[Rfam]
Description:
Rfam assigns this 114-nucleotide sequence from Tripterygium wilfordii to the family "MIR162_1 microRNA precursor family". Its family is annotated with RISC complex and miRNA-mediated post-transcriptional gene silencing in the Gene Ontology. Lineage of the source: Eukaryota > Euphyllophyta > Spermatophyta > fabids > Tripterygium. For this family Rfam cites "MicroRNAs in plants" (Reinhart et al., Genes Dev, 2002). The family has 36 seed sequences and 270 matches in Rfam 15.1.
RNA sequence: GGUGAAGUCACUGGAGGCAGCGGUUCAUCGAUCUCUUCCUGGAAAUUUUUUGUAGUGAAAAAUCGCGAAAAGACAUGAAUCGAUCGAUAAACCUCUGCAUCCAGCGCUUACCCC
Numbered sequence: 001g002g003u004g005a006a007g008u009c010a011c012u013g014g015a016g017g018c019a020g021c022g023g024u025u026c027a028u029c030g031a032u033c034u035c036u037u038c039c040u041g042g043a044a045a046u047u048u049u050u051u052g053u054a055g056u057g058a059a060a061a062a063u064c065g066c067g068a069a070a071a072g073a074c075a076u077g078a079a080u081c082g083a084u085c086g087a088u089a090a091a092c093c094u095c096u097g098c099a100u101c102c103a104g105c106g107c108u109u110a111c112c113c114c
Base pairs, nucleotide, nucleotide: 013102014101015100018097019096020095022093023092024091025090027088028087029086030085031084032083033082036079037078038077